Description: Shown here is a 223-nucleotide sequence from alpha proteobacterium U9-1i, a member of the family "permuted transfer-messenger RNA". The family's RNA type in Rfam is non-coding RNA gene. The family's consensus secondary structure is taken from published work.

[Rfam]
RNA sequence: GGCGAUAAACGCGCGGAGAUAGACGGAUCGGACCCGGGUGCGAUGCCCGGCGGCUCCACCAGUUUCAUCCAAAUGGGGUCGCCCCCAAGCGGAUGGUUAUGGGGCCGAAAUAGGAUCGACGGACGUUGAAGGUCGUUGCUUUUGCUCGGGUGGUCCCGUCACAGGCCGAACAGCAAUAGUUGCCAAUGACAACAAUGCUGAGGAAUUCGCCCUCGCUGCGUAA
Numbered sequence: 001g002g003c004g005a006u007a008a009a010c011g012c013g014c015g016g017a018g019a020u021a022g023a024c025g026g027a028u029c030g031g032a033c034c035c036g037g038g039u040g041c042g043a044u045g046c047c048c049g050g051c052g053g054c055u056c057c058a059c060c061a062g063u064u065u066c067a068u069c070c071a072a073a074u075g076g077g078g079u080c081g082c083c084c085c086c087a088a089g090c091g092g093a094u095g096g097u098u099a100u101g102g103g104g105c106c107g108a109a110a111u112a113g114g115a116u117c118g119a120c121g122g123a124c125g126u127u128g129a130a131g132g133u134c135g136u137u138g139c140u141u142u143u144g145c146u147c148g149g150g151u152g153g154u155c156c157c158g159u160c161a162c163a164g165g166c167c168g169a170a171c172a173g174c175a176a177u178a179g180u181u182g183c184c185a186a187u188g189a190c191a192a193c194a195a196u197g198c199u200g201a202g203g204a205a206u207u208c209g210c211c212c213u214c215g216c217u218g219c220g221u222a223a
Stems, first nucleotide, its partner, number of pairs: 001146005016134002024125002028122003034050005051107007147158004